[Rfam]
The record is a 61-nucleotide RNA from Capsicum baccatum, which matches "Plastid-psbA-2 3UTR RNA" in Rfam. The source organism's lineage runs through Eukaryota, Streptophytina, Spermatophyta, Mesangiospermae and Capsicum. By type it is a cis-regulatory element. It scores 60 bits against the family's covariance model.
RNA sequence: AGAAAUGAGCAAUAAUCAUUUUCUUGUUUUAUCAAGAGGGUGCUAUUGCUCCUUUCUUUUU
Numbered sequence: 001a002g003a004a005a006u007g008a009g010c011a012a013u014a015a016u017c018a019u020u021u022u023c024u025u026g027u028u029u030u031a032u033c034a035a036g037a038g039g040g041u042g043c044u045a046u047u048g049c050u051c052c053u054u055u056c057u058u059u060u061u
Stems, first nucleotide, its partner, number of pairs: 001057005007051008016042001017040001019038001022037005
Background
A reference for the family is Richter et al. (2023), "Retrograde signaling in plants: A critical review focusing on the GUN pathway and beyond", Plant Commun. Clan: Plastid-psbA 3UTR RNA clan.